[Rfam]
RNA: mir-2 microRNA precursor family
RNA sequence: GUUCUCGUCAAAGUGGUUGUGACACGUUCAGGUUUUCGUUUUAAAUUCAAUUAACAUCGUAUCACAGCCAGCUUUGUAUGAGCGCUG
Number, nucleotide and partner (000 for none) at each position: 001g000002u000003u000004c000005u081006c080007g079008u078009c076010a075011a074012a073013g072014u070015g069016g068017u067018u066019g065020u064021g063022a062023c000024a000025c000026g060027u059028u000029c000030a000031g000032g000033u000034u000035u000036u000037c000038g000039u000040u000041u000042u000043a000044a000045a000046u000047u000048c000049a000050a000051u000052u000053a000054a000055c000056a000057u000058c000059g027060u026061a000062u022063c021064a020065c019066a018067g017068c016069c015070a014071g000072c013073u012074u011075u010076g009077u000078a008079u007080g006081a005082g000083c000084g000085c000086u000087g000